This 124-nucleotide RNA sequence from Cnephaeus nilssonii belongs to the Rfam family "Small nucleolar RNA SNORA28". About the family: ACA28 is a member of the H/ACA class of snoRNA that guide the sites of modification of uridines to pseudouridines. Its Rfam clan is "SNORA28 clan". Pairs were carried over by alignment from the consensus structure, which was predicted with RNAfold. The organism belongs to Cnephaeus, within Eukaryota.
RNA sequence: AAGCUUCAUUCUGUGGCAGAUGAUCAAAACUGUCUGACACAAUUUUAGCUUGCUAUAGCAACAGAGUAUAACCUAUUUCAGUGUUCUCUCCUAUGAGACAAGCUGCUAUAUAGACUUAAACAGU
Numbered sequence: 001a002a003g004c005u006u007c008a009u010u011c012u013g014u015g016g017c018a019g020a021u022g023a024u025c026a027a028a029a030c031u032g033u034c035u036g037a038c039a040c041a042a043u044u045u046u047a048g049c050u051u052g053c054u055a056u057a058g059c060a061a062c063a064g065a066g067u068a069u070a071a072c073c074u075a076u077u078u079c080a081g082u083g084u085u086c087u088c089u090c091c092u093a094u095g096a097g098a099c100a101a102g103c104u105g106c107u108a109u110a111u112a113g114a115c116u117u118a119a120a121c122a123g124u
Stems, first nucleotide, its partner, number of pairs: 009048002012041004017036006064117004069112002074110003079105004087098004